[Rfam]
RNA sequence: CCAGAGGAGGUGUUGUGUGUCUGCCUGUCUACACUUGCUGUGCAGAAUAUCCUGGAGCCUGUACAGCAGGCACAGACAGGCAGAUAGACAGCAGCCCACCA
Numbered sequence: 001c002c003a004g005a006g007g008a009g010g011u012g013u014u015g016u017g018u019g020u021c022u023g024c025c026u027g028u029c030u031a032c033a034c035u036u037g038c039u040g041u042g043c044a045g046a047a048u049a050u051c052c053u054g055g056a057g058c059c060u061g062u063a064c065a066g067c068a069g070g071c072a073c074a075g076a077c078a079g080g081c082a083g084a085u086a087g088a089c090a091g092c093a094g095c096c097c098a099c100c101a
Stems, first nucleotide, its partner, number of pairs: 018086002022082009034070001036068006043061003
Record summary
Shown here is a 101-nucleotide RNA from Clupea harengus, a member of the family "mir-214 microRNA precursor family". Pairs were carried over by alignment from the consensus structure, which was predicted with RNAalifold. It scores 91 bits against the family's covariance model. The family has 39 seed sequences and 1,411 matches in Rfam 15.1.